RNA sequence: GGUAAUAAACACUAUCUAUAAUAGGUAUUUUGGACUCGGGGGCAGUACCCGACGCCUCCACCACAUUUAUUCGGGGGCGAAACAGCUUCGACAGAUGCUCAAAAAGGUAGACACUUUACUCAGUUUGGUCCGGCUGUAAUAGGCUAAAAAUAAAUAAAUGCAAACUUGAACAAAGUUGUAGCAAACGAUAAUUGGGUACCUACUGCUGCUAUGGCGGCCUAA
Numbered sequence: 001g002g003u004a005a006u007a008a009a010c011a012c013u014a015u016c017u018a019u020a021a022u023a024g025g026u027a028u029u030u031u032g033g034a035c036u037c038g039g040g041g042g043c044a045g046u047a048c049c050c051g052a053c054g055c056c057u058c059c060a061c062c063a064c065a066u067u068u069a070u071u072c073g074g075g076g077g078c079g080a081a082a083c084a085g086c087u088u089c090g091a092c093a094g095a096u097g098c099u100c101a102a103a104a105a106g107g108u109a110g111a112c113a114c115u116u117u118a119c120u121c122a123g124u125u126u127g128g129u130c131c132g133g134c135u136g137u138a139a140u141a142g143g144c145u146a147a148a149a150a151u152a153a154a155u156a157a158a159u160g161c162a163a164a165c166u167u168g169a170a171c172a173a174a175g176u177u178g179u180a181g182c183a184a185a186c187g188a189u190a191a192u193u194g195g196g197u198a199c200c201u202a203c204u205g206c207u208g209c210u211a212u213g214g215c216g217g218c219c220u221a222a
Base pairs, nucleotide, nucleotide: 001120002119003118004117005116014108015107016106017105026097027096028095030094031093032092036052037051038050039049040048053079054078055077056076057075058074059073121136122135123134124133
Source information: This 222-nucleotide RNA sequence from Rickettsiales endosymbiont of Peranema trichophorum belongs to the Rfam family "permuted transfer-messenger RNA". Pairs were carried over by alignment from the consensus structure, which is taken from published work. Rfam's curators write: Bacterial tmRNA, also known as 10Sa RNA or SsrA, is named for its dual tRNA and mRNA-like properties. Its role is to liberate the mRNA from a stalled ribosome. To accomplish this part of the tmRNA is used as a reading frame that ends in a translation stop signal. Its family is annotated with RNA catabolic process in the Gene Ontology. The source organism's lineage runs through Bacteria, Pseudomonadati, Pseudomonadota, Alphaproteobacteria and Rickettsiales.